RNA sequence: ACCCCACACAAUUAAGCCGACAAUUUCAAUGUGUUCCAAUUGGAACUGUGUGCUCGUUGUGGGAACAGCAAAGUCUGCUAAUGGUGUAUGAUUAUAUUUGUUAUUACGGUAUAAUCAAAGAAUUGACGCAGGACA
Numbered sequence: 001a002c003c004c005c006a007c008a009c010a011a012u013u014a015a016g017c018c019g020a021c022a023a024u025u026u027c028a029a030u031g032u033g034u035u036c037c038a039a040u041u042g043g044a045a046c047u048g049u050g051u052g053c054u055c056g057u058u059g060u061g062g063g064a065a066c067a068g069c070a071a072a073g074u075c076u077g078c079u080a081a082u083g084g085u086g087u088a089u090g091a092u093u094a095u096a097u098u099u100g101u102u103a104u105u106a107c108g109g110u111a112u113a114a115u116c117a118a119a120g121a122a123u124u125g126a127c128g129c130a131g132g133a134c135a
Stems, first nucleotide, its partner, number of pairs: 020049003024045004077129002089117007098109004

This 135-nucleotide RNA sequence from Frieseomelitta varia belongs to the Rfam family "Small nucleolar RNA snoR639/H1". It is annotated as an H/ACA-box small nucleolar RNA. A search with the family's covariance model found it, with a score of 44 bits. About the family: snoR639 or snoH1 belongs to the H/ACA class of snoRNAs which are thought to guide the sites of modification of uridines to pseudouridines. snoH1 is found in an intron of the mfl gene in Drosophila. A reference for the family is Yuan et al. (2003), "RNomics in Drosophila melanogaster: identification of 66 candidates for novel non-messenger RNAs", Nucleic Acids Res. The pairing is the family consensus, mapped onto this sequence. Gene Ontology terms of the family: nucleolus and RNA processing.